Flavivirus DB element: a 73-nucleotide sequence from Orthoflavivirus denguei. NCBI's taxonomy places the organism under Viruses, Orthornavirae, Flasuviricetes, Amarillovirales, Dengue virus. The sequence is in the family's curated seed alignment. On this family, see Akiyama et al., Nucleic Acids Res 2021: "Three-dimensional structure of a flavivirus dumbbell RNA reveals molecular details of an RNA regulator of replication". From the family's description: This family represents the flavivirus 3' UTR elements DB1 and DB2. These DB elements are thought to be required for efficient translation. The family's RNA type in Rfam is cis-regulatory element.
Nucleotides: 073
Base pairs, nucleotide, nucleotide: 002067003066004065005064006063007042008041012036013035014034015033016032017031018030019029049062050061051060052059
Number, partner (000 for none) and nucleotide at each position: 001000u002067g003066g004065g005064g006063g007042c008041c009000c010000a011000a012036g013035g014034u015033g016032a017031g018030a019029u020000g021000a022000a023000g024000c025000u026000g027000u028000a029019g030018u031017c032016u033015c034014a035013c036012u037000g038000g039000a040000a041008g042007g043000a044000c045000u046000a047000g048000a049062g050061g051060u052059u053000a054000g055000a056000g057000g058000a059052g060051a061050c062049c063006c064005c065004c066003c067002c068000a069000a070000g071000a072000c073000a